[Rfam]
RNA sequence: AAAGGAGGUAUCCAAAGGGAUAGCAUGAUCCCACUUCACAUCACAUGCAGUUUAGGAGUUAAAAAGAAACUAGUAUUACAAAUACUUCCCCUACAUGUGAAGGCAAGAAAUUAAAGGGUUAGGAUCAAUGCGAUCCCUUUGGAUGGCUCCUU
Dot-bracket structure: .(((((..(((((((((((((.(((((((((..........................................................................................)))))).))).)))))))))))))..)))))
Numbered sequence: 001a002a003a004g005g006a007g008g009u010a011u012c013c014a015a016a017g018g019g020a021u022a023g024c025a026u027g028a029u030c031c032c033a034c035u036u037c038a039c040a041u042c043a044c045a046u047g048c049a050g051u052u053u054a055g056g057a058g059u060u061a062a063a064a065a066g067a068a069a070c071u072a073g074u075a076u077u078a079c080a081a082a083u084a085c086u087u088c089c090c091c092u093a094c095a096u097g098u099g100a101a102g103g104c105a106a107g108a109a110a111u112u113a114a115a116g117g118g119u120u121a122g123g124a125u126c127a128a129u130g131c132g133a134u135c136c137c138u139u140u141g142g143a144u145g146g147c148u149c150c151u152u
Stems, first nucleotide, its partner, number of pairs: 002152005009145013023131003026127006
Rfam assigns this 152-nucleotide RNA sequence from Coffea arabica to the family "mir-393 microRNA precursor family". A reference for the family is Kruszka et al. (2012), "Role of microRNAs and other sRNAs of plants in their changing environments", J Plant Physiol. Pairs were carried over by alignment from the consensus structure.